[Rfam]
RNA sequence: AGAGAGGCUUCCACGAUGGUUACCGUCUGGGGGCCUUUUUCUUUUGC
Numbered sequence: 001a002g003a004g005a006g007g008c009u010u011c012c013a014c015g016a017u018g019g020u021u022a023c024c025g026u027c028u029g030g031g032g033g034c035c036u037u038u039u040u041c042u043u044u045u046g047c
Stems, first nucleotide, its partner, number of pairs: 005036008015027004
Dot-bracket structure: ....((((((((..((((.....)))).))))))))...........

The family of this 47-nucleotide RNA from Ensifer fredii is "ctRNA". Rfam describes the family as follows. This family represents a group of ctRNAs (or counter-transcribed RNAs) from p42d and related plasmids. ctRNAs are small, highly structured, antisense sequences which are involved in negative regulation. Pairs were carried over by alignment from the consensus structure, which is taken from published work. Lineage of the source: Bacteria > Alphaproteobacteria > Hyphomicrobiales > Rhizobiaceae > Ensifer fredii. By type it is an antisense RNA.